[Rfam]
The record is a 228-nucleotide part of an RNA from Acaryochloris marina, which matches "Bacterial large subunit ribosomal RNA" in Rfam. A search with the family's covariance model found it, with a score of 2827 bits.
RNA sequence: GACUUAUAAGUACUGGCAGGUUAAGACGGAAAUGUCGAAGCCAAAGGGAAACCGAGUCUGAUAAGGGCGUUAGUCAGUAUUUAUAGACCCGAACCUGGGUGAUCUAACCAUGGCCAGGAUGAAGCUUGGGUAACACCAAGUGGAGGUCCGAACCGACUUCUGUUGAAAAAGGAGCGGAUGAGCUGUGGUUAGGGGUGAAAUGCCAAUCGAACCCAGAGCUAGCUGGUU
Dot-bracket structure: ....(((((((((((((.((((..(((......)))..))))...((....))..((((.....))))....)))))))))))))..((.(...((((((...((((((((((((.((((...((((((......))))))....))))...(((.(((((........))))))))..).))))))))))).(((.....)))......))))))......).))..